RNA sequence: AUAUCGCCUCGGUAGGGGAGGUUACUACAAGGAUACGGGUUGCUGCCGUAAAAGGAUGGAAACAUUCUGAACUGGUUAGCAGGUUUUGCCGAACAAAGAAGGCUUAACUUAACGCAACUUCAUCGCCUUGCAGAGCCAAAACUUGAACGAGAAAGUGUUGU
Numbered sequence: 001a002u003a004u005c006g007c008c009u010c011g012g013u014a015g016g017g018g019a020g021g022u023u024a025c026u027a028c029a030a031g032g033a034u035a036c037g038g039g040u041u042g043c044u045g046c047c048g049u050a051a052a053a054g055g056a057u058g059g060a061a062a063c064a065u066u067c068u069g070a071a072c073u074g075g076u077u078a079g080c081a082g083g084u085u086u087u088g089c090c091g092a093a094c095a096a097a098g099a100a101g102g103c104u105u106a107a108c109u110u111a112a113c114g115c116a117a118c119u120u121c122a123u124c125g126c127c128u129u130g131c132a133g134a135g136c137c138a139a140a141a142c143u144u145g146a147a148c149g150a151g152a153a154a155g156u157g158u159u160g161u
Base pairs, nucleotide, nucleotide: 005157006156007155009153011148013100015143016142020137021136022135025133026132028130029129030128031127032126039118040117041116042115043114046074048072049071055066056065057064058063082109083108084107085106088103089102090101
RNA: M-box riboswitch aptamer (ykoK leader)